Description:
The family of this 67-nucleotide RNA from Cnephaeus nilssonii is "mir-9256 microRNA precursor family". Taxonomically the source falls in Cnephaeus (Eukaryota, Metazoa, Tetrapoda, Yangochiroptera).

[Rfam]
RNA sequence: GCUUACACUGAGUGGCCAGAUGAUUAUGAUCUCUGAACGCAUAAUCAUCUGGCCACUCAGUGUAAUC
Numbered sequence: 001g002c003u004u005a006c007a008c009u010g011a012g013u014g015g016c017c018a019g020a021u022g023a024u025u026a027u028g029a030u031c032u033c034u035g036a037a038c039g040c041a042u043a044a045u046c047a048u049c050u051g052g053c054c055a056c057u058c059a060g061u062g063u064a065a066u067c
Stems, first nucleotide, its partner, number of pairs: 004064014019049010